Group II catalytic intron D1-D4-2: a 128-nucleotide sequence from Kribbella caucasensis. Rfam 15.1 lists 1,231 matches to the family in 625 species. Group II introns are found in rRNA, tRNA and mRNA of organelles in fungi, plants and protists, and also in mRNA in bacteria. The source organism's lineage runs through Bacteria, Bacillati, Actinomycetota, Propionibacteriales and Kribbella. The pairing is the family consensus, mapped onto this sequence. Rfam links the family to the GO term Group II intron splicing.
Nucleotides: 128
Base pairs, nucleotide, nucleotide: 001019002018003017004016005015020045021044022043023042024041025040027038028037029036030035049128050127052095053094055092056091057090058084059083061081062080063079065077066076067075100124101123102122
Number, partner (000 for none) and nucleotide at each position: 001019g002018g003017a004016g005015g006000u007000u008000u009000g010000u011000u012000g013000g014000c015005c016004c017003u018002c019001c020045a021044g022043a023042g024041c025040c026000g027038c028037u029036c030035u031000g032000c033000g034000g035030g036029g037028a038027g039000a040025g041024g042023c043022u044021c045020u046000a047000a048000a049128c050127c051000a052095c053094c054000c055092c056091g057090a058084g059083c060000u061081g062080c063079a064000u065077u066076g067075g068000c069000u070000g071000a072000a073000g074000a075067c076066c077065g078000u079063u080062g081061u082000g083059g084058u085000g086000a087000a088000c089000g090057u091056c092055g093000u094053g095052g096000g097000a098000a099000a100124a101123g102122g103000c104000g105000c106000g107000g108000c109000c110000c111000a112000a113000u114000a115000c116000c117000g118000g119000u120000a121000a122102c123101u124100u125000a126000g127050g128049g